[Rfam]
RNA sequence: UGAUCCCUCGCGGGAGAGAUCGCCUGUGGAACCACCGGAAACGGAUGGGGACGCGGGCGGCGCCGAAGGAGCAACCGCCCCCGGAAACUCUCAGGCAAAAGGACCGCAAGGGGAUA
Numbered sequence: 001u002g003a004u005c006c007c008u009c010g011c012g013g014g015a016g017a018g019a020u021c022g023c024c025u026g027u028g029g030a031a032c033c034a035c036c037g038g039a040a041a042c043g044g045a046u047g048g049g050g051a052c053g054c055g056g057g058c059g060g061c062g063c064c065g066a067a068g069g070a071g072c073a074a075c076c077g078c079c080c081c082c083g084g085a086a087a088c089u090c091u092c093a094g095g096c097a098a099a100a101g102g103a104c105c106g107c108a109a110g111g112g113g114a115u116a
Base pairs, nucleotide, nucleotide: 006111007110008109010107011106012105013104020060021059022058023057024056025055026054027053028052062096063095064094065092066091069090070089071088075083
Rfam assigns this 116-nucleotide RNA from Azospirillum sp. B510 to the family "Glycine riboswitch aptamer".
Its family is annotated with glycine biosynthetic process in the Gene Ontology.
It scores 68 bits against the family's covariance model.